Rfam assigns this 118-nucleotide RNA sequence from Siminovitchia fortis to the family "SAM riboswitch aptamer (S box leader)". From the family's description: The SAM riboswitch is found upstream of a number of genes which code for proteins involved in methionine or cysteine biosynthesis in Gram-positive bacteria. The source organism's lineage runs through Bacteria, Bacillota, Bacilli, Caryophanales and Siminovitchia.

RNA sequence: CUCUUAUUGAGAGCGGUGGAGGGACUGGCCCUGUGAAACCCGGCAACCAUUCUUGUUUUACCAAAACAGGAACAGGUGCUAAAUCCUGCAAAAUACUUUGUAUUUUGAAAAAUAAGAG
Numbered sequence: 001c002u003c004u005u006a007u008u009g010a011g012a013g014c015g016g017u018g019g020a021g022g023g024a025c026u027g028g029c030c031c032u033g034u035g036a037a038a039c040c041c042g043g044c045a046a047c048c049a050u051u052c053u054u055g056u057u058u059u060a061c062c063a064a065a066a067c068a069g070g071a072a073c074a075g076g077u078g079c080u081a082a083a084u085c086c087u088g089c090a091a092a093a094u095a096c097u098u099u100g101u102a103u104u105u106u107g108a109a110a111a112a113u114a115a116g117a118g
Stems, first nucleotide, its partner, number of pairs: 001118008013041001015040003021031003025088001027086002042080004047076002050071003084110001089107006